Rfam assigns this 81-nucleotide RNA sequence from Aspergillus carbonarius to the family "tRNA". The family's RNA type in Rfam is transfer RNA. The family's consensus secondary structure is taken from published work. Gene Ontology term of the family: triplet codon-amino acid adaptor activity. The source organism's lineage runs through Eukaryota, saccharomyceta, Eurotiomycetes, Eurotiales and Aspergillus carbonarius.
RNA sequence: GGCAAGAUGGCCGAGUGGUUAAGGCGAUGGUCUUAAGAUCCAUUAUCGUGAGAUGCACGGGUUCGAACCCCGUUCUUGCCA
Numbered sequence: 001g002g003c004a005a006g007a008u009g010g011c012c013g014a015g016u017g018g019u020u021a022a023g024g025c026g027a028u029g030g031u032c033u034u035a036a037g038a039u040c041c042a043u044u045a046u047c048g049u050g051a052g053a054u055g056c057a058c059g060g061g062u063u064c065g066a067a068c069c070c071c072g073u074u075c076u077u078g079c080c081a
Base pairs, nucleotide, nucleotide: 001080002079003078004077005076006075007074010025011024012023027043028042029041030040057073058072059071060070061069
Dot-bracket structure: (((((((..(((..........))).((((.........)))).............(((((.......)))))))))))).